[Rfam]
Source information
The family of this 178-nucleotide sequence from Luteipulveratus halotolerans is "c-di-AMP riboswitch aptamer (ydaO/yuaA leader)". Lineage of the source: Bacteria > Bacillati > Actinomycetes > Micrococcales > Luteipulveratus. This family represents a conserved RNA structure found upstream of the ydaO and yuaA genes in Bacillus subtilis and related genes in other bacteria. The ydaO/yuaA element is thought to act as a genetic 'off' switch for the ydaO and yuaA genes in its native state. It is believed that the element may be triggered during osmotic shock leading to activation of ydaO, a predicted amino acid transporter gene, and members of the yuaA-yubG operon which code for KtrA and KtrB K+ transporters.
RNA sequence: AACGCUGAACCUCGUCACUGGCGCGACCUCCCGGAUGGUCCGGGCGCACGGACGAGGGUGGGGGACCCACGUACGACGACGCAGCAGUCAGGCGUCUUGGGGUGAAGCCGGUACGCCGGCCGGGCACCUGACAGCCCGAACCCGACAGCUCACCUCACAGGCGUUCGUCAGGAAGGAA
Numbered sequence: 001a002a003c004g005c006u007g008a009a010c011c012u013c014g015u016c017a018c019u020g021g022c023g024c025g026a027c028c029u030c031c032c033g034g035a036u037g038g039u040c041c042g043g044g045c046g047c048a049c050g051g052a053c054g055a056g057g058g059u060g061g062g063g064g065a066c067c068c069a070c071g072u073a074c075g076a077c078g079a080c081g082c083a084g085c086a087g088u089c090a091g092g093c094g095u096c097u098u099g100g101g102g103u104g105a106a107g108c109c110g111g112u113a114c115g116c117c118g119g120c121c122g123g124g125c126a127c128c129u130g131a132c133a134g135c136c137c138g139a140a141c142c143c144g145a146c147a148g149c150u151c152a153c154c155u156c157a158c159a160g161g162c163g164u165u166c167g168u169c170a171g172g173a174a175g176g177a178a
Stems, first nucleotide, its partner, number of pairs: 003163004010057007058158006068099002100143003108119004122137004